[Rfam]
RNA sequence: CCCCGGAGUCCCCGAUUUAGCCGCUCAUGAGCUCGUGGUAUUUUCCUUACAUGAUCAGGCUCCAUUGCUGGUGAUGCCACUAGCCUGGAGCCUGAAAAGAUUAUGAAAAUGUGUCUGGCAAAGUGGGGCUGGGGACCGGG
Numbered sequence: 001c002c003c004c005g006g007a008g009u010c011c012c013c014g015a016u017u018u019a020g021c022c023g024c025u026c027a028u029g030a031g032c033u034c035g036u037g038g039u040a041u042u043u044u045c046c047u048u049a050c051a052u053g054a055u056c057a058g059g060c061u062c063c064a065u066u067g068c069u070g071g072u073g074a075u076g077c078c079a080c081u082a083g084c085c086u087g088g089a090g091c092c093u094g095a096a097a098a099g100a101u102u103a104u105g106a107a108a109a110u111g112u113g114u115c116u117g118g119c120a121a122a123g124u125g126g127g128g129c130u131g132g133g134g135a136c137c138g139g140g
Stems, first nucleotide, its partner, number of pairs: 001140003005137001008136006020129003024125001055095006062088002067084007
small Cajal body-specific RNA 17: a 140-nucleotide RNA from Panthera tigris.
Rfam links the family to the GO terms nucleolus, Cajal body and RNA processing.
By type it is a small Cajal body RNA.
The family's consensus secondary structure is taken from published work.
On this family, see Tycowski et al., Curr Biol 2004: "Guide RNAs with 5' Caps and Novel Box C/D snoRNA-like Domains for Modification of snRNAs in Metazoa".
Lineage of the source: Eukaryota > Metazoa > Mammalia > Laurasiatheria > Panthera tigris.
It scores 103 bits against the family's covariance model.
scaRNAs are a specific class of small nuclear RNAs which localise to the Cajal bodies and guide the modification of RNA polymerase II transcribed spliceosomal RNAs U1, U2, U4, U5 and U12. The complete human U12-22/U4-8 scaRNA is composed of two tandem C/D box domains (termed U12-22 and U4-8).